This 89-nucleotide RNA from Gemmata obscuriglobus belongs to the Rfam family "SAH (S-adenosyl-L-homocysteine) riboswitch aptamer".

RNA sequence: CUCCGUGAGGGGCGCUGCAACGGGACGCACUGGGCGUACUUGCCAGGCUCGCGGGGAUGGGCAUUCACGUGCAACGGCGCCCGUUCAUC
Numbered sequence: 001c002u003c004c005g006u007g008a009g010g011g012g013c014g015c016u017g018c019a020a021c022g023g024g025a026c027g028c029a030c031u032g033g034g035c036g037u038a039c040u041u042g043c044c045a046g047g048c049u050c051g052c053g054g055g056g057a058u059g060g061g062c063a064u065u066c067a068c069g070u071g072c073a074a075c076g077g078c079g080c081c082c083g084u085u086c087a088u089c
Base pairs, nucleotide, nucleotide: 002055003054004053005052006051007050008049021042022041023040024039
About this RNA:
The match comes from Rfam's covariance-model search (49 bits).